[Rfam]
RNA sequence: UAAAUUCUUCGGGGCAGGGUGCAAUUCCCAACCGGCGGUAGAGUCCGCGACCCGCUUUCUUAUGAAAGUGGCUGAUCUGGUGAGAUUCCAGAACCGACAGUACAGUCUGGAUGAGAGAAGAAUGCA
Numbered sequence: 001u002a003a004a005u006u007c008u009u010c011g012g013g014g015c016a017g018g019g020u021g022c023a024a025u026u027c028c029c030a031a032c033c034g035g036c037g038g039u040a041g042a043g044u045c046c047g048c049g050a051c052c053c054g055c056u057u058u059c060u061u062a063u064g065a066a067a068g069u070g071g072c073u074g075a076u077c078u079g080g081u082g083a084g085a086u087u088c089c090a091g092a093a094c095c096g097a098c099a100g101u102a103c104a105g106u107c108u109g110g111a112u113g114a115g116a117g118a119a120g121a122a123u124g125c126a
Stems, first nucleotide, its partner, number of pairs: 004123007017029003031106002033096002035048004043094002052071002076092005098109003